RNA sequence: GGAGGUUGCAAUGAGGAUUCACAGCUCCCUCUUCUGAUAUUGUUGAAGAAAUUAGCCGGCAGAAUCGAACCUAUAACUUUUUCGCCACCACUGAGCAA
Numbered sequence: 001g002g003a004g005g006u007u008g009c010a011a012u013g014a015g016g017a018u019u020c021a022c023a024g025c026u027c028c029c030u031c032u033u034c035u036g037a038u039a040u041u042g043u044u045g046a047a048g049a050a051a052u053u054a055g056c057c058g059g060c061a062g063a064a065u066c067g068a069a070c071c072u073a074u075a076a077c078u079u080u081u082u083c084g085c086c087a088c089c090a091c092u093g094a095g096c097a098a
Stems, first nucleotide, its partner, number of pairs: 006098004
A member of the RNA family "Small nucleolar RNA R30/Z108" from Gossypium stocksii, 98 nucleotides long. snoR30 is a C/D box small nucleolar RNA which acts as a methylation guide for 18S ribosomal RNA in plants. The source organism's lineage runs through Eukaryota, Viridiplantae, Embryophyta, Malvoideae and Gossypium. Rfam 15.1 lists 626 matches to the family in 219 species. On this family, see Marker et al., Curr Biol 2002: "Experimental RNomics. Identification of 140 Candidates for Small Non-Messenger RNAs in the Plant Arabidopsis thaliana". By type it is a C/D-box small nucleolar RNA. The match comes from Rfam's covariance-model search (84 bits). Pairs were carried over by alignment from the consensus structure, which was predicted with PFOLD.